[Rfam]
RNA sequence: GGAUCCAUGAUGAUACCAAGUCUCUGAGGACAGUGAUCGACUAAUAACUAUGCCAACCUAAGCUCC
Number, nucleotide and partner (000 for none) at each position: 001g066002g065003a064004u000005c062006c000007a000008u000009g000010a000011u000012g000013a000014u000015a000016c000017c000018a000019a000020g000021u000022c000023u000024c000025u000026g000027a000028g000029g000030a000031c000032a000033g000034u000035g000036a000037u000038c000039g000040a000041c000042u000043a000044a000045u000046a000047a000048c000049u000050a000051u000052g000053c000054c000055a000056a000057c000058c000059u000060a000061a000062g005063c000064u003065c002066c001
This 66-nucleotide sequence from Mesocricetus auratus belongs to the Rfam family "Small nucleolar RNA SNORD109A".
About the family: Humans have two copies of the SNORD109 gene, SNORD109A and SNORD109B.
The base pairs follow the family's consensus structure, which was predicted with WAR.